RNA sequence: GGUGGCGAGCCCGCCGGGAUCUGCCGUCGGAGGCCGGUAUCAAACAACCACUGCUGCUGUGGUAAAGAACCAUGGUGGUGAGUGCAGGGGAAACGCCCGGACAAGAUCUGAGGCUAUA
Numbered sequence: 001g002g003u004g005g006c007g008a009g010c011c012c013g014c015c016g017g018g019a020u021c022u023g024c025c026g027u028c029g030g031a032g033g034c035c036g037g038u039a040u041c042a043a044a045c046a047a048c049c050a051c052u053g054c055u056g057c058u059g060u061g062g063u064a065a066a067g068a069a070c071c072a073u074g075g076u077g078g079u080g081a082g083u084g085c086a087g088g089g090g091a092a093a094c095g096c097c098c099g100g101a102c103a104a105g106a107u108c109u110g111a112g113g114c115u116a117u118a
Base pairs, nucleotide, nucleotide: 001015002014003013004012005011016041017040019038020037021036023034024033025032046117048090049089051087052086053079054078056076057075058074060072061071062070063069095114096112098110099109100108
Notes: Rfam assigns this 118-nucleotide sequence from Citrobacter youngae to the family "Group II catalytic intron D1-D4-2". Group II introns are found in rRNA, tRNA and mRNA of organelles in fungi, plants and protists, and also in mRNA in bacteria. Taxonomically the source falls in Citrobacter youngae (Bacteria, Gammaproteobacteria, Citrobacter, Citrobacter freundii complex). Gene Ontology term of the family: Group II intron splicing. Rfam's curators put it in the seed alignment. The pairing is the family consensus, mapped onto this sequence.